[Rfam]
RNA sequence: GAGCUAACCGUCAUGGCAAGCUUAAACCUGCAAAGGUGCAGGCGAAGGGAAACCGAGCUCUCGCAGCUUCGCAAGAAGUGAGGAGAGGCGUGUGAAAGUGCGUAGAGUCAUGGCGGCUAGGCUAGAAGCCAGUCGAUCUAUUCCUGAGCUAGAUGAAGGGGGGCGAAAGCCCCCUGGAGGUCUUAAGACGUUCUGACGUGCAAAUCGUUGUUGUGACUUGGGAAUAGGGGUCAAAAACCAAUCUAGACUGGCGCUCGCUAGUU
Numbered sequence: 001g002a003g004c005u006a007a008c009c010g011u012c013a014u015g016g017c018a019a020g021c022u023u024a025a026a027c028c029u030g031c032a033a034a035g036g037u038g039c040a041g042g043c044g045a046a047g048g049g050a051a052a053c054c055g056a057g058c059u060c061u062c063g064c065a066g067c068u069u070c071g072c073a074a075g076a077a078g079u080g081a082g083g084a085g086a087g088g089c090g091u092g093u094g095a096a097a098g099u100g101c102g103u104a105g106a107g108u109c110a111u112g113g114c115g116g117c118u119a120g121g122c123u124a125g126a127a128g129c130c131a132g133u134c135g136a137u138c139u140a141u142u143c144c145u146g147a148g149c150u151a152g153a154u155g156a157a158g159g160g161g162g163g164c165g166a167a168a169g170c171c172c173c174c175u176g177g178a179g180g181u182c183u184u185a186a187g188a189c190g191u192u193c194u195g196a197c198g199u200g201c202a203a204a205u206c207g208u209u210g211u212u213g214u215g216a217c218u219u220g221g222g223a224a225u226a227g228g229g230g231u232c233a234a235a236a237a238c239c240a241a242u243c244u245a246g247a248c249u250g251g252c253g254c255u256c257g258c259u260a261g262u263u
Base pairs, nucleotide, nucleotide: 005119006118008116009115010114011113012112013111014110015109016108017107020043021042022041023040026037027036028035029034047054048053059086060085061084062083066079067078068077069076089102090101091100092099122261123260125258129251130250131249132248133247134246138227139226140225141224142223143222144221145220146219147218148217149215151183152182153181154180158175159174160173161172162171163170164169187212188211189210190209193207195206196205229239230238231237

Rfam assigns this 263-nucleotide part of an RNA from uncultured marine crenarchaeote 'Gulf of Maine' to the family "Archaeal large subunit ribosomal RNA". NCBI's taxonomy places the organism under Archaea, Thermoproteati, Thermoproteota. The family's consensus secondary structure is taken from published work. Its family is annotated with structural constituent of ribosome and ribosome in the Gene Ontology. A reference for the family is Cannone et al. (2002), "The comparative RNA web (CRW) site: an online database of comparative sequence and structure information for ribosomal, intron, and other RNAs", BMC Bioinformatics.